[Rfam]
RNA sequence: AUUUUUUUUUGAAAAAACUCGGGUCGAUUUUUUUUGAAAAAACUCGGGCCGAUUUUUUUUUGAAAAAACUCGGGCCGAUUUUUCAUCCAACGAAAAAAAUCGGCCCGAGUUUUUUCAAAAAAUCGGGUCGAUUUUUUUGAAAAAACUCGGGCCGAUUUUUUUGAAAAAACUCGGGCCGAUUUU
Numbered sequence: 001a002u003u004u005u006u007u008u009u010u011g012a013a014a015a016a017a018c019u020c021g022g023g024u025c026g027a028u029u030u031u032u033u034u035u036g037a038a039a040a041a042a043c044u045c046g047g048g049c050c051g052a053u054u055u056u057u058u059u060u061u062g063a064a065a066a067a068a069c070u071c072g073g074g075c076c077g078a079u080u081u082u083u084c085a086u087c088c089a090a091c092g093a094a095a096a097a098a099a100u101c102g103g104c105c106c107g108a109g110u111u112u113u114u115u116c117a118a119a120a121a122a123u124c125g126g127g128u129c130g131a132u133u134u135u136u137u138u139g140a141a142a143a144a145a146c147u148c149g150g151g152c153c154g155a156u157u158u159u160u161u162u163g164a165a166a167a168a169a170c171u172c173g174g175g176c177c178g179a180u181u182u183u
Stems, first nucleotide, its partner, number of pairs: 019078001022076004030068003036060002039057004044052003102177009124154001126152001128150004
This 183-nucleotide RNA from Caenorhabditis angaria belongs to the Rfam family "Small nucleolar RNA SNORA81". The family has 28 seed sequences and 1,161 matches in Rfam 15.1. Rfam links the family to the GO terms nucleolus and RNA processing. By type it is an H/ACA-box small nucleolar RNA.